[Rfam]
RNA sequence: AAAAGGCCCAAGGCCCAGUCCCGUGGAAGCCGGGACCGCCCCUUCGGGGGCGCGGCGCUCAUGCCUGCUGA
Numbered sequence: 001a002a003a004a005g006g007c008c009c010a011a012g013g014c015c016c017a018g019u020c021c022c023g024u025g026g027a028a029g030c031c032g033g034g035a036c037c038g039c040c041c042c043u044u045c046g047g048g049g050g051c052g053c054g055g056c057g058c059u060c061a062u063g064c065c066u067g068c069u070g071a
Base pairs, nucleotide, nucleotide: 004066005065006064007063013056014055015054016029018036020034021033022032037052038051039050040049041048042047
Dot-bracket structure: ...((((.....((([.(.(((......]..))).)((((((....)))))).)))......)))).....

The family of this 71-nucleotide RNA sequence is "Twister_sister_ribozyme". For this family Rfam cites "New classes of self-cleaving ribozymes revealed by comparative genomics analysis" (Weinberg et al., Nat Chem Biol, 2015). It is one of the family's seed sequences. The family's consensus secondary structure is taken from published work.